[Rfam]
RNA sequence: GAUCACGCCGUAGUCUGAUUGUAGGCUCGUCCCCCGCCGCAUCAGACCGGACAAAGGCCUUUCCCCCUCUCCGGGCCUUUGUCCUCCAAUACGACCGCCAUGGCCGACCCCUCCCGGCCAUGGCGGUUUUAU
Numbered sequence: 001g002a003u004c005a006c007g008c009c010g011u012a013g014u015c016u017g018a019u020u021g022u023a024g025g026c027u028c029g030u031c032c033c034c035c036g037c038c039g040c041a042u043c044a045g046a047c048c049g050g051a052c053a054a055a056g057g058c059c060u061u062u063c064c065c066c067c068u069c070u071c072c073g074g075g076c077c078u079u080u081g082u083c084c085u086c087c088a089a090u091a092c093g094a095c096c097g098c099c100a101u102g103g104c105c106g107a108c109c110c111c112u113c114c115c116g117g118c119c120a121u122g123g124c125g126g127u128u129u130u131a132u
Base pairs, nucleotide, nucleotide: 014046015045016044017043018042019041024038025037026036049084050083051082052081053080054079055078056077057076058075059074093128095126096125097124098123099122100121101120102119103118104117105116106115
Shown here is a 132-nucleotide RNA from Agrobacterium tumefaciens, a member of the family "Alphaproteobacterial sRNA ar7". Rfam's curators put it in the seed alignment. Pairs were carried over by alignment from the consensus structure. For this family Rfam cites "A survey of sRNA families in alpha-proteobacteria" (del Val et al., RNA Biol, 2012).